[Rfam]
RNA: Gammaretrovirus core encapsidation signal
Organism: Gammaretrovirus murleu
RNA sequence: GUCUGUACUAGUUGGCUAACUAGAUCUGUAUCUGGCGGUCCCGCGGAAGAACUGACGAGUUCGUAUUCCCGGCCGCAGCCCCUAGGAGACGUCCCAGCGGCC
Dot-bracket structure: ..(.(..((((((....))))))..).)......((((..(((.(((((((((....)))))...)))))))))))..((.((.(((....))).)).))..